[Rfam]
RNA sequence: CUAUUCCGACAGGGGAGCGCACAGCGCUGAGAGUGCGGCAGCAGCCGCAGACCCUCGAACCUGAACCGGGUCAUACCGGCGUAGGGAGUUCGGUCACCACUCGAC
Number, nucleotide and partner (000 for none) at each position: 001c000002u000003a000004u000005u000006c093007c092008g091009a090010c000011a055012g054013g053014g052015g000016a000017g027018c026019g025020c024021a000022c000023a000024g020025c019026g018027c017028u000029g000030a000031g000032a000033g000034u049035g048036c047037g046038g045039c000040a000041g000042c000043a000044g000045c038046c037047g036048c035049a034050g000051a000052c014053c013054c012055u011056c000057g000058a000059a000060c085061c084062u083063g082064a000065a000066c079067c078068g077069g076070g000071u000072c000073a000074u000075a000076c069077c068078g067079g066080c000081g000082u063083a062084g061085g060086g000087a000088g000089u000090u009091c008092g007093g006094u000095c000096a000097c000098c000099a000100c000101u000102c000103g000104a000105c000
This 105-nucleotide sequence from Streptomyces xinghaiensis belongs to the Rfam family "TPP riboswitch aptamer (THI element)".
Rfam describes the family as follows. Vitamin B(1) in its active form thiamin pyrophosphate (TPP) is an essential coenzyme that is synthesised by coupling of pyrimidine and thiazole moieties in bacteria.
Gene Ontology term of the family: thiamine pyrophosphate binding.
Pairs were carried over by alignment from the consensus structure, which is taken from published work.